[Rfam]
RNA sequence: AACCUGUGAUGAAAAGAUUCUGCCAAAUGAUUCCUUUGAUUAUACUCCUUACCGUUCCAUUUUGACUGAGGUU
Numbered sequence: 001a002a003c004c005u006g007u008g009a010u011g012a013a014a015a016g017a018u019u020c021u022g023c024c025a026a027a028u029g030a031u032u033c034c035u036u037u038g039a040u041u042a043u044a045c046u047c048c049u050u051a052c053c054g055u056u057c058c059a060u061u062u063u064g065a066c067u068g069a070g071g072u073u
Stems, first nucleotide, its partner, number of pairs: 001073004

Description: The record is a 73-nucleotide sequence from Myripristis murdjan, which matches "Small nucleolar RNA SNORD47" in Rfam. The literature on the family includes a 2002 paper in Mol Cell Biol by Galardi et al., "Purified box C/D snoRNPs are able to reproduce site-specific 2'-O-methylation of target RNA in vitro". The family's RNA type in Rfam is C/D-box small nucleolar RNA. It scores 70 bits against the family's covariance model. NCBI's taxonomy places the organism under Eukaryota, Actinopterygii, Euacanthomorphacea, Holocentriformes, Myripristis. Pairs were carried over by alignment from the consensus structure, which was predicted with ILM. Gene Ontology terms of the family: RNA processing and nucleolus.